[Rfam]
RNA sequence: GAAGUCCACUAGGGGCGCUUCGUUUAAGAGGCUGAGAUAAAGCGUUUGCUUUGGUCCCUUUGAACCUGAUCUGGCUAAUACCAGCGAAGGGAAGUGGAGUCGGUUGGAU
Numbered sequence: 001g002a003a004g005u006c007c008a009c010u011a012g013g014g015g016c017g018c019u020u021c022g023u024u025u026a027a028g029a030g031g032c033u034g035a036g037a038u039a040a041a042g043c044g045u046u047u048g049c050u051u052u053g054g055u056c057c058c059u060u061u062g063a064a065c066c067u068g069a070u071c072u073g074g075c076u077a078a079u080a081c082c083a084g085c086g087a088a089g090g091g092a093a094g095u096g097g098a099g100u101c102g103g104u105u106g107g108a109u
Stems, first nucleotide, its partner, number of pairs: 006097005011059004016053001017032005039052005065090003071084004
RNA: TPP riboswitch aptamer (THI element)
Organism: Pontibacillus litoralis